[Rfam]
RNA sequence: AGUAUUUGUGUGUGUUUUUGUGCAACUUGUGGGCAAAGACUUAUAGACAGGUCUUUUACAACCCAGAACUCGUUGUUUAGAAUGAGUUUUACACAUACAGAAGGAAUAUU
Numbered sequence: 001a002g003u004a005u006u007u008g009u010g011u012g013u014g015u016u017u018u019u020g021u022g023c024a025a026c027u028u029g030u031g032g033g034c035a036a037a038g039a040c041u042u043a044u045a046g047a048c049a050g051g052u053c054u055u056u057u058a059c060a061a062c063c064c065a066g067a068a069c070u071c072g073u074u075g076u077u078u079a080g081a082a083u084g085a086g087u088u089u090u091a092c093a094c095a096u097a098c099a100g101a102a103g104g105a106a107u108a109u110u
Stems, first nucleotide, its partner, number of pairs: 004052006011045001014040008026031001054102004065090009
A member of the RNA family "Small nucleolar RNA SNORA40" from Chinchilla lanigera, 110 nucleotides long. On this family, see Ofengand and Bakin, J Mol Biol 1997: "Mapping to nucleotide resolution of pseudouridine residues in large subunit ribosomal RNAs from representative eukaryotes, prokaryotes, archaebacteria, mitochondria and chloroplasts". The snoRNA ACA 40 belongs to the H/ACA family of snoRNAs and guides the pseudouridylation of 28S rRNA subunit at position U4565. The family's RNA type in Rfam is H/ACA-box small nucleolar RNA. Lineage of the source: Eukaryota > Gnathostomata > Teleostomi > Eutheria > Chinchilla. Rfam links the family to the GO terms nucleolus and RNA processing.